RNA sequence: UAAGCCCUGUCCCAAAAGGUGCGGUCAUACAGGGUAAGAGUGGCCAAAGGCCACCGCCGCACUGCCCAAAAGGGUAGGGACAGGAAGGAGGA
Number, nucleotide and partner (000 for none) at each position: 001u000002a000003a000004g000005c000006c084007c083008u082009g081010u080011c079012c078013c077014a000015a000016a000017a000018g063019g062020u061021g060022c059023g058024g057025u056026c000027a000028u000029a000030c000031a000032g000033g000034g000035u000036a000037a000038g055039a000040g054041u053042g052043g051044c050045c000046a000047a000048a000049g000050g044051c043052c042053a041054c040055c038056g025057c024058c023059g022060c021061a020062c019063u018064g075065c074066c073067c072068a000069a000070a000071a000072g067073g066074g065075u064076a000077g013078g012079g011080a010081c009082a008083g007084g006085a000086a000087g000088g000089a000090g000091g000092a000
RNA: DUF1874 RNA